[Rfam]
RNA sequence: AUACUUACCUGGCAAGGGAGACACCAUGAUCACGAAAGUGGUUUUCCCAGGGCCAGGCUUAUCCAUUGCACUGUGGAUGUGCUGACCCCUGUGAUUUCCCCAAGUGUGGGAAACUCAACUGCAUAAUUUGUCGUAGUGGGGGACUAUGUACAUGCUUUCCCCUG
Numbered sequence: 001a002u003a004c005u006u007a008c009c010u011g012g013c014a015a016g017g018g019a020g021a022c023a024c025c026a027u028g029a030u031c032a033c034g035a036a037a038g039u040g041g042u043u044u045u046c047c048c049a050g051g052g053c054c055a056g057g058c059u060u061a062u063c064c065a066u067u068g069c070a071c072u073g074u075g076g077a078u079g080u081g082c083u084g085a086c087c088c089c090u091g092u093g094a095u096u097u098c099c100c101c102a103a104g105u106g107u108g109g110g111a112a113a114c115u116c117a118a119c120u121g122c123a124u125a126a127u128u129u130g131u132c133g134u135a136g137u138g139g140g141g142g143a144c145u146a147u148g149u150a151c152a153u154g155c156u157u158u159c160c161c162c163u164g
Stems, first nucleotide, its partner, number of pairs: 012122003016048006023042005049090004056083003060079005092117003095113003099109002138163006147154002